[Rfam]
RNA sequence: UUGCCGUGGGAUAGAGUGAUCGGGUCAAAGCUUCUACUAGAAGUUAAACUCAGGAAAGUCCUCGGGCCGUCACCCGUAGAAAUACGGAUUCGGUAACGAAUUCAGCCUUGUGAGCCCAUUGGGUGCUGAGACACGUGUGGAGCAUUAAAGCCCAAUGGGCCAAAGGUUAAUUGGCCAAAUUAACAGUUAUUCACUCAGCCCCUUUGGGGCUACAGAACGGGGCUUACUUCUCACGGCA
Numbered sequence: 001u002u003g004c005c006g007u008g009g010g011a012u013a014g015a016g017u018g019a020u021c022g023g024g025u026c027a028a029a030g031c032u033u034c035u036a037c038u039a040g041a042a043g044u045u046a047a048a049c050u051c052a053g054g055a056a057a058g059u060c061c062u063c064g065g066g067c068c069g070u071c072a073c074c075c076g077u078a079g080a081a082a083u084a085c086g087g088a089u090u091c092g093g094u095a096a097c098g099a100a101u102u103c104a105g106c107c108u109u110g111u112g113a114g115c116c117c118a119u120u121g122g123g124u125g126c127u128g129a130g131a132c133a134c135g136u137g138u139g140g141a142g143c144a145u146u147a148a149a150g151c152c153c154a155a156u157g158g159g160c161c162a163a164a165g166g167u168u169a170a171u172u173g174g175c176c177a178a179a180u181u182a183a184c185a186g187u188u189a190u191u192c193a194c195u196c197a198g199c200c201c202c203u204u205u206g207g208g209g210c211u212a213c214a215g216a217a218c219g220g221g222g223c224u225u226a227c228u229u230c231u232c233a234c235g236g237c238a
Stems, first nucleotide, its partner, number of pairs: 002238009014196006024049002030044006056225003060222004075086004087102006104168003111163001114160006123145004133138001198210005
RNase MRP: a 238-nucleotide sequence from Cucumis sativus. The organism belongs to Cucumis, within Eukaryota. On this family, see Schmitt et al., FASEB J 1993: "Secondary structure of RNase MRP RNA as predicted by phylogenetic comparison". Gene Ontology terms of the family: rRNA processing, ribonuclease MRP complex and ribonuclease MRP activity. Rfam describes the family as follows. RNase MRP is an enzymatically active ribonucleoprotein with two distinct roles in eukaryotes. In mitochondria it plays a direct role in the initiation of mitochondrial DNA replication. The family's consensus secondary structure is taken from published work. The match comes from Rfam's covariance-model search (77 bits).